Shown here is a 79-nucleotide sequence from Ailuropoda melanoleuca, a member of the family "MAT2A 3'UTR stem loop D". NCBI's taxonomy places the organism under Eukaryota, Amniota, Theria, Ursidae, Ailuropoda. By type it is a cis-regulatory element. It scores 32 bits against the family's covariance model. Rfam 15.1 lists 422 matches to the family in 262 species.
RNA sequence: UCGGGGGCGGGGCUUGGGUACAGGUAUUAAAGCUCUGCAGGCCAUCCAGGUAACCUGGGUGGAGAGCCCUGGCCUCAGA
Number, nucleotide and partner (000 for none) at each position: 001u079002c078003g000004g076005g075006g074007g073008c072009g070010g069011g068012g067013c066014u065015u064016g000017g000018g000019u000020a000021c000022a000023g000024g000025u000026a000027u000028u000029a000030a000031a000032g000033c000034u000035c000036u000037g000038c000039a000040g000041g000042c000043c000044a000045u000046c000047c000048a000049g000050g000051u000052a000053a000054c000055c000056u000057g000058g000059g000060u000061g000062g000063a000064g015065a014066g013067c012068c011069c010070u009071g000072g008073c007074c006075u005076c004077a000078g002079a001